[Rfam]
RNA sequence: CAUCCGAAGAGUGGCCAUCCUUUUGGAACCGGCCCGCCGUAGGAGAAAGCGGCCCCCCCAUCCCGGGGAAAGCCCGUGAAGCUCUCAGGCCCAAACACGGAUG
Numbered sequence: 001c002a003u004c005c006g007a008a009g010a011g012u013g014g015c016c017a018u019c020c021u022u023u024u025g026g027a028a029c030c031g032g033c034c035c036g037c038c039g040u041a042g043g044a045g046a047a048a049g050c051g052g053c054c055c056c057c058c059c060a061u062c063c064c065g066g067g068g069a070a071a072g073c074c075c076g077u078g079a080a081g082c083u084c085u086c087a088g089g090c091c092c093a094a095a096c097a098c099g100g101a102u103g
Stems, first nucleotide, its partner, number of pairs: 001103006013034004036090003039086001043084003049077004
About this RNA:
The record is a 103-nucleotide RNA sequence from Nitrospirillum viridazoti, which matches "Glycine riboswitch aptamer" in Rfam. It scores 40 bits against the family's covariance model. Its Rfam clan is "Glycine riboswitch clan". The organism belongs to Nitrospirillum viridazoti, within Bacteria.